[Rfam]
RNA sequence: AUGAAUACAAGGGGAGAGCUUACAAAGAGGGGAAAGGUUAUUUCUUCUAUGUAACGCCGAAGGAGCAAGCCGAAGCGAAUCUCUCAGGCAAAAAGACUCUUGUAGGACG
Dot-bracket structure: .....((((((((......((((...........................)))).(((((..(((...((....))....))))).))).......)))))))).....
RNA: Glycine riboswitch aptamer